[Rfam]
RNA sequence: GGGAUAAUAUCCCUGGAUGUGGCUUUAAAGCUGAACGAGAGG
Numbered sequence: 001g002g003g004a005u006a007a008u009a010u011c012c013c014u015g016g017a018u019g020u021g022g023c024u025u026u027a028a029a030g031c032u033g034a035a036c037g038a039g040a041g042g
Stems, first nucleotide, its partner, number of pairs: 001013005014038001016036001021032004
A member of the RNA family "eL15-Euryarchaeota ribosomal protein leader", 42 nucleotides long. The literature on the family includes a 2020 paper in BMC Microbiol by Eckert and Weinberg, "Discovery of 20 novel ribosomal leader candidates in bacteria and archaea". Rfam classes the family as a cis-regulatory leader.